The family of this 100-nucleotide RNA sequence from Shewanella pealeana is "Purine riboswitch aptamer". Gene Ontology term of the family: purine nucleobase biosynthetic process. Rfam's curators put it in the seed alignment. The source organism's lineage runs through Bacteria, Pseudomonadota, Alteromonadales, Shewanella and Shewanella pealeana. Riboswitches are metabolite binding domains within certain messenger RNAs that serve as precision sensors for their corresponding targets.
RNA sequence: UAAUAUUUACCGUUAACACUUCGUAUAAUCUCAAUGAUAUGGUUUGAGAGUUUCUACCAAGAGCCCUAAACUCUUGAUUAUGAAGACUUUACUUUAUGUA
Dot-bracket structure: ..................(((((((...((((((.........))))))........((((((.......))))))..)))))))...............